Shown here is a 75-nucleotide sequence from Streptomyces sp. SAJ15, a member of the family "ASpks TB sRNA". The match comes from Rfam's covariance-model search (83 bits). The base pairs follow the family's consensus structure, which is taken from published work.

[Rfam]
RNA sequence: CUUCACCGAGCCCAGCAGCAGCGGCUUGUCCUCCGGCCGGUCCUGCCCGUACGUCGCCAGCAGCGCCUGCGCCUC
Numbered sequence: 001c002u003u004c005a006c007c008g009a010g011c012c013c014a015g016c017a018g019c020a021g022c023g024g025c026u027u028g029u030c031c032u033c034c035g036g037c038c039g040g041u042c043c044u045g046c047c048c049g050u051a052c053g054u055c056g057c058c059a060g061c062a063g064c065g066c067c068u069g070c071g072c073c074u075c
Stems, first nucleotide, its partner, number of pairs: 014026003031071001033069001038065002043060003047056001049054001